RNA sequence: UGGGUAGUAUCGAUUGCGAACUGCACUUUAUUGUUUAACAUAAAAAAAUCAUUAAAUAAUCUGCUCAUAUCAUUAUGAAUGAGACGGCGCU
Numbered sequence: 001u002g003g004g005u006a007g008u009a010u011c012g013a014u015u016g017c018g019a020a021c022u023g024c025a026c027u028u029u030a031u032u033g034u035u036u037a038a039c040a041u042a043a044a045a046a047a048a049u050c051a052u053u054a055a056a057u058a059a060u061c062u063g064c065u066c067a068u069a070u071c072a073u074u075a076u077g078a079a080u081g082a083g084a085c086g087g088c089g090c091u
Base pairs, nucleotide, nucleotide: 002027003026004024005023006022007021008020010019011018061087062086063085064083065082066081067080068079070078071077072076
Source information:
The record is a 91-nucleotide RNA sequence from Clostridium estertheticum, which matches "pan motif" in Rfam. The source organism's lineage runs through Bacteria, Bacillota, Clostridia, Eubacteriales and Clostridium.